The family of this 174-nucleotide sequence from Anaerocolumna sedimenticola is "Lysine riboswitch aptamer".
The match comes from Rfam's covariance-model search (130 bits).
The base pairs follow the family's consensus structure, which is taken from published work.
Riboswitches are metabolite binding domains within certain messenger RNAs that serve as precision sensors for their corresponding targets. Allosteric rearrangement of mRNA structure is mediated by ligand binding, and this results in modulation of gene expression. This family includes riboswitches that sense lysine in a number of genes involved in lysine metabolism, including lysC.
RNA sequence: UUUUUUGGUAGAGGCGCAUUUUUUAAGAGUACAUAGCUGGAUAUGGCAGACAUGGAAGAAAGCUGUGGAAAGGAAAAGAUGCCGAAAUUAAGGUAAACUGCAUUGCCUUAGUUGGGCAUAUGGUAAAUAACCAUAUGACUGUCAUCAUUUUAUUGAUGGAGUGCUGCCUAAAGA
Numbered sequence: 001u002u003u004u005u006u007g008g009u010a011g012a013g014g015c016g017c018a019u020u021u022u023u024u025a026a027g028a029g030u031a032c033a034u035a036g037c038u039g040g041a042u043a044u045g046g047c048a049g050a051c052a053u054g055g056a057a058g059a060a061a062g063c064u065g066u067g068g069a070a071a072g073g074a075a076a077a078g079a080u081g082c083c084g085a086a087a088u089u090a091a092g093g094u095a096a097a098c099u100g101c102a103u104u105g106c107c108u109u110a111g112u113u114g115g116g117c118a119u120a121u122g123g124u125a126a127a128u129a130a131c132c133a134u135a136u137g138a139c140u141g142u143c144a145u146c147a148u149u150u151u152a153u154u155g156a157u158g159g160a161g162u163g164c165u166g167c168c169u170a171a172a173g174a
Stems, first nucleotide, its partner, number of pairs: 007168005016082009032067007086113011114140002117137008142159006